[Rfam]
RNA: U4 spliceosomal RNA
RNA sequence: AGCUUUGUGCAGUGGCAGUAUCAUAGCCAAUGAGGUUUAUGCCAGGUGUGAUUAUUGUUAAUUGAAAACUAAAUUAUACACAGAUAAAUAUUACAUUUGUUCAAAAAUGCUAUAACUUAAUCAGUAACUUGA
Numbered sequence: 001a002g003c004u005u006u007g008u009g010c011a012g013u014g015g016c017a018g019u020a021u022c023a024u025a026g027c028c029a030a031u032g033a034g035g036u037u038u039a040u041g042c043c044a045g046g047u048g049u050g051a052u053u054a055u056u057g058u059u060a061a062u063u064g065a066a067a068a069c070u071a072a073a074u075u076a077u078a079c080a081c082a083g084a085u086a087a088a089u090a091u092u093a094c095a096u097u098u099g100u101u102c103a104a105a106a107a108u109g110c111u112a113u114a115a116c117u118u119a120a121u122c123a124g125u126a127a128c129u130u131g132a
Base pairs, nucleotide, nucleotide: 020052021051022050023049024048026047027046028045034043035042036041084113085112086111088108089107091105092104095101121132122131123130124129